About this RNA:
Shown here is a 354-nucleotide RNA sequence from Roseovarius gaetbuli, a member of the family "Alphaproteobacteria transfer-messenger RNA". Its Rfam clan is "tRNA clan". The family's RNA type in Rfam is non-coding RNA gene. A search with the family's covariance model found it, with a score of 306 bits. NCBI's taxonomy places the organism under Bacteria, Pseudomonadati, Rhodobacterales, Roseobacteraceae, Roseovarius. For this family Rfam cites "Phylogenetic analysis of tmRNA secondary structure" (Williams and Bartel, RNA, 1996).

RNA sequence: CCCCUAGGCAAGCCCCGCCAUAGCCCCUAUAUGUGUCUUGUCCUUUCGGGGACUAUGGACAUAAACGCGCUCGUAAUACGCGGAUCGGACCCGGGGGCGGUACCCGGCGACUCCACCAACAAUCCCUUCAUUUGGGGGAUCCUGGGGUCGAAACAGGAUCGACGAACGUCUAAAGGGGUAUUGCUUUGUCUCGGUGAGGUACCACCGUUAUCGGUCCGAAAAGUACAAUUGCAAAUGACAAUCGUGCUCCGGUAGCUCUCGCAGCGUAAGCUGUUAGAAAAACCGAAACUUAAGCCCUUGCGCCUAGCAGCGUAAGGCGGGGUUCGCAGGCACCUGGCAACAGAAGCCUGCACU
Numbered sequence: 001c002c003c004c005u006a007g008g009c010a011a012g013c014c015c016c017g018c019c020a021u022a023g024c025c026c027c028u029a030u031a032u033g034u035g036u037c038u039u040g041u042c043c044u045u046u047c048g049g050g051g052a053c054u055a056u057g058g059a060c061a062u063a064a065a066c067g068c069g070c071u072c073g074u075a076a077u078a079c080g081c082g083g084a085u086c087g088g089a090c091c092c093g094g095g096g097g098c099g100g101u102a103c104c105c106g107g108c109g110a111c112u113c114c115a116c117c118a119a120c121a122a123u124c125c126c127u128u129c130a131u132u133u134g135g136g137g138g139a140u141c142c143u144g145g146g147g148u149c150g151a152a153a154c155a156g157g158a159u160c161g162a163c164g165a166a167c168g169u170c171u172a173a174a175g176g177g178g179u180a181u182u183g184c185u186u187u188g189u190c191u192c193g194g195u196g197a198g199g200u201a202c203c204a205c206c207g208u209u210a211u212c213g214g215u216c217c218g219a220a221a222a223g224u225a226c227a228a229u230u231g232c233a234a235a236u237g238a239c240a241a242u243c244g245u246g247c248u249c250c251g252g253u254a255g256c257u258c259u260c261g262c263a264g265c266g267u268a269a270g271c272u273g274u275u276a277g278a279a280a281a282a283c284c285g286a287a288a289c290u291u292a293a294g295c296c297c298u299u300g301c302g303c304c305u306a307g308c309a310g311c312g313u314a315a316g317g318c319g320g321g322g323u324u325c326g327c328a329g330g331c332a333c334c335u336g337g338c339a340a341c342a343g344a345a346g347c348c349u350g351c352a353c354u
Base pairs, nucleotide, nucleotide: 040053041052042051043050044049057191058190059189060188061187067184068183069179070178071177072176081168082167085165086164087163091107092106093105094104095103108150109149110148111147112146113145114144192207193206194205195204198217199216201215202214203213320335321334322333323332326351327350328349329348330347331346